Plastid-rpl16 group II-D1 intron: a 47-nucleotide RNA from Juglans cinerea. Lineage of the source: Eukaryota > Streptophyta > eudicotyledons > Gunneridae > Juglans. Plastid-rpl16 is a non-coding RNA (ncRNA) recognised in plastids. It was recognised in and intronic region of a ribosome rpl16 gene.

RNA sequence: AAGAGCCCCGAGUCAAUAAAGACUGAGAAAAUUGACUCACGAACACA
Numbered sequence: 001a002a003g004a005g006c007c008c009c010g011a012g013u014c015a016a017u018a019a020a021g022a023c024u025g026a027g028a029a030a031a032u033u034g035a036c037u038c039a040c041g042a043a044c045a046c047a
Stems, first nucleotide, its partner, number of pairs: 007041001010038008